Annotation: This 115-nucleotide RNA from Fervidicella metallireducens belongs to the Rfam family "Ribosomal protein L20 leader". The source organism's lineage runs through Bacteria, Bacillati, Bacillota, Fervidicella and Fervidicella metallireducens. Its family is annotated with regulation of gene expression in the Gene Ontology. Rfam describes the family as follows. This family is a putative r-protein leader autoregulatory structure found in B. subtilis and other low-GC Gram-positive bacteria. The base pairs follow the family's consensus structure, which was predicted with CMfinder.

RNA sequence: AGUGAUAAGAAGAAGCCAUCCGCUUCUCACCUUACACCCAAGGUGCUAAGGUUAUGAUUAUUGAUUUUAUGUAUAUCUGCGGAUGGAUUAUGUCCAUCCGCUUUUUAUAUGCCUU
Numbered sequence: 001a002g003u004g005a006u007a008a009g010a011a012g013a014a015g016c017c018a019u020c021c022g023c024u025u026c027u028c029a030c031c032u033u034a035c036a037c038c039c040a041a042g043g044u045g046c047u048a049a050g051g052u053u054a055u056g057a058u059u060a061u062u063g064a065u066u067u068u069a070u071g072u073a074u075a076u077c078u079g080c081g082g083a084u085g086g087a088u089u090a091u092g093u094c095c096a097u098c099c100g101c102u103u104u105u106u107a108u109a110u111g112c113c114u115u
Stems, first nucleotide, its partner, number of pairs: 011027006029052003035045004079101009